This 137-nucleotide sequence from Myotis myotis belongs to the Rfam family "Small nucleolar RNA SNORA4". Gene Ontology terms of the family: nucleolus and RNA processing. It scores 119 bits against the family's covariance model. Rfam's curators write: ACA4 is a member of the H/ACA class of snoRNA that guide the sites of modification of uridines to pseudouridines. Pairs were carried over by alignment from the consensus structure, which was predicted with PFOLD. The organism belongs to Myotis, within Eukaryota.
RNA sequence: CUACCAAAAGUUUUAUUUUGGGUGAAGGUUUUUUAAUAACCUUUACCAACUUGGACUCUUUGGGAGAAUAAAGACCACACUCCACAGUGGACUAUAUCACUAAACAUAUAGCCCAUUACUAUUUUGUGGCCUACAUU
Numbered sequence: 001c002u003a004c005c006a007a008a009a010g011u012u013u014u015a016u017u018u019u020g021g022g023u024g025a026a027g028g029u030u031u032u033u034u035a036a037u038a039a040c041c042u043u044u045a046c047c048a049a050c051u052u053g054g055a056c057u058c059u060u061u062g063g064g065a066g067a068a069u070a071a072a073g074a075c076c077a078c079a080c081u082c083c084a085c086a087g088u089g090g091a092c093u094a095u096a097u098c099a100c101u102a103a104a105c106a107u108a109u110a111g112c113c114c115a116u117u118a119c120u121a122u123u124u125u126g127u128g129g130c131c132u133a134c135a136u137u
Stems, first nucleotide, its partner, number of pairs: 004063005012054002020050001024046001026044001027041004072132002075129005086117005092111006